This 350-nucleotide RNA sequence from Clostridium cellulovorans belongs to the Rfam family "Bacterial RNase P class A".
Rfam classes the family as a ribozyme.
RNA sequence: CGAGUAAGCCAGACAAUCGCUGCUGAUUUUUAGUCAGGAGAGGAAAGUCCGAGCUUCAUAGGGCAGGGUGCUGGGUAACUCCCAGUGGAGGCGACUCUAAGGAAAGUGCAACAGAGAGAUACCGCCUUAUUGAAUUUAUUUAAUAAGGUAAGGGUGGAAAGGUGAGGUAAGAGCUCACCAGCGCAUUGGUGACUUUGCGGCUAUGUAAACCCCACUUGAAGCAAGACCAAAUGGAGGCAUAUGGGGCUGCCCGUCCCGUCUCAGGUAGCGUCGCUUGAGUCUAUUGGUAACAAUAGGCCUAGAUAGAUGAUUGUCAAAUACAGAACUCGGCUUAUAGGUUUGCUCGUCCA
Numbered sequence: 001c002g003a004g005u006a007a008g009c010c011a012g013a014c015a016a017u018c019g020c021u022g023c024u025g026a027u028u029u030u031u032a033g034u035c036a037g038g039a040g041a042g043g044a045a046a047g048u049c050c051g052a053g054c055u056u057c058a059u060a061g062g063g064c065a066g067g068g069u070g071c072u073g074g075g076u077a078a079c080u081c082c083c084a085g086u087g088g089a090g091g092c093g094a095c096u097c098u099a100a101g102g103a104a105a106g107u108g109c110a111a112c113a114g115a116g117a118g119a120u121a122c123c124g125c126c127u128u129a130u131u132g133a134a135u136u137u138a139u140u141u142a143a144u145a146a147g148g149u150a151a152g153g154g155u156g157g158a159a160a161g162g163u164g165a166g167g168u169a170a171g172a173g174c175u176c177a178c179c180a181g182c183g184c185a186u187u188g189g190u191g192a193c194u195u196u197g198c199g200g201c202u203a204u205g206u207a208a209a210c211c212c213c214a215c216u217u218g219a220a221g222c223a224a225g226a227c228c229a230a231a232u233g234g235a236g237g238c239a240u241a242u243g244g245g246g247c248u249g250c251c252c253g254u255c256c257c258g259u260c261u262c263a264g265g266u267a268g269c270g271u272c273g274c275u276u277g278a279g280u281c282u283a284u285u286g287g288u289a290a291c292a293a294u295a296g297g298c299c300u301a302g303a304u305a306g307a308u309g310a311u312u313g314u315c316a317a318a319u320a321c322a323g324a325a326c327u328c329g330g331c332u333u334a335u336a337g338g339u340u341u342g343c344u345c346g347u348c349c350a
Stems, first nucleotide, its partner, number of pairs: 001346010011335001012315007020040002023037006045333003049330005054221004061252004066217005071085005086100001087098004101212002106210002108206003122153002124149011161179006181201001182199004188193001225272003228268001234262001236260003243257005279298008
Rfam links the family to the GO terms ribonuclease P activity, tRNA processing and dimeric ribonuclease P complex.